[Rfam]
RNA: SAM/SAH riboswitch aptamer
RNA sequence: AUCCUGUCACAACGGCUUCCUGGCGUGGCGGGCUAAACUCAAUGGAGCG
Numbered sequence: 001a002u003c004c005u006g007u008c009a010c011a012a013c014g015g016c017u018u019c020c021u022g023g024c025g026u027g028g029c030g031g032g033c034u035a036a037a038c039u040c041a042a043u044g045g046a047g048c049g
Stems, first nucleotide, its partner, number of pairs: 004031007013022002015048003019045002